[Rfam]
RNA sequence: AUUACGAAAAGGCAAAUCUACUGAAAGGUAGAGACGCAAAACCGUGGGUCUAAGGUGAAAGCUAAGAUUGCCAGGUUAUCGAA
Numbered sequence: 001a002u003u004a005c006g007a008a009a010a011g012g013c014a015a016a017u018c019u020a021c022u023g024a025a026a027g028g029u030a031g032a033g034a035c036g037c038a039a040a041a042c043c044g045u046g047g048g049u050c051u052a053a054g055g056u057g058a059a060a061g062c063u064a065a066g067a068u069u070g071c072c073a074g075g076u077u078a079u080c081g082a083a
Stems, first nucleotide, its partner, number of pairs: 012037002017032006040077004045073003048068003055062002
The family of this 83-nucleotide RNA from Bacillus sp. Y1 is "c-di-GMP-I riboswitch aptamer". On this family, see Weinberg et al., Nucleic Acids Res 2007: "Identification of 22 candidate structured RNAs in bacteria using the CMfinder comparative genomics pipeline". Clan: c-di-GMP_I riboswitch clan. The organism belongs to Bacillus, within Bacteria.